[Rfam]
RNA sequence: GAUCAGUUGAUGAGUUAAUACUGCAACAAUAUGAUGGAGAUAAUCUAUAUGAUUCUUAGUAUUUAAGUCUCUGAUGAUC
Numbered sequence: 001g002a003u004c005a006g007u008u009g010a011u012g013a014g015u016u017a018a019u020a021c022u023g024c025a026a027c028a029a030u031a032u033g034a035u036g037g038a039g040a041u042a043a044u045c046u047a048u049a050u051g052a053u054u055c056u057u058a059g060u061a062u063u064u065a066a067g068u069c070u071c072u073g074a075u076g077a078u079c
Stems, first nucleotide, its partner, number of pairs: 001078001003077003036048001038046003

Description: This 79-nucleotide RNA sequence from Capsella rubella belongs to the Rfam family "Small nucleolar RNA Z199". The family has 17 seed sequences and 953 matches in Rfam 15.1. Lineage of the source: Eukaryota > Magnoliopsida > eudicotyledons > Gunneridae > Capsella. The match comes from Rfam's covariance-model search (79 bits). The literature on the family includes a 2003 paper in Nucleic Acids Res by Chen et al., "The high diversity of snoRNAs in plants: identification and comparative study of 120 snoRNA genes from Oryza sativa". snoZ199 is a C/D box small nucleolar RNA, which acts as a methylation guide RNA for sites on 18S and 25S rRNA. Rice snoZ199 is reported to be homologous to Arabidopsis snoR13. By type it is a C/D-box small nucleolar RNA.